Nucleotides: 128
Base pairs, nucleotide, nucleotide: 004053005052006051007050008049009048010047011046012045015042016041017116018115019114020113021112027038028037029036030035105123107121108120109119
Number, partner (000 for none) and nucleotide at each position: 001000c002000g003000c004053c005052g006051u007050u008049c009048g010047g011046g012045u013000g014000a015042c016041u017116g018115g019114c020113g021112c022000u023000g024000g025000a026000g027038g028037u029036g030035g031000g032000c033000a034000a035030c036029c037028a038027c039000c040000g041016g042015g043000g044000a045012g046011c047010u048009c049008g050007a051006a052005c053004g054000u055000c056000g057000c058000g059000c060000g061000c062000u063000u064000a065000a066000c067000c068000g069000c070000g071000c072000g073000c074000g075000u076000c077000u078000a079000a080000a081000a082000g083000u084000u085000g086000g087000c088000u089000u090000g091000c092000u093000g094000a095000u096000c097000g098000c099000a100000a101000g102000c103000c104000g105123g106000c107121g108120c109119c110000g111000c112021g113020c114019g115018c116017c117000u118000g119109g120108g121107c122000u123105c124000c125000u126000c127000g128000a
A member of the RNA family "ZMP/ZTP riboswitch aptamer (pfl RNA motif)" from Caulobacter sp. Root655, 128 nucleotides long. The family has 185 seed sequences and 3,295 matches in Rfam 15.1. The organism belongs to Caulobacter, within Bacteria.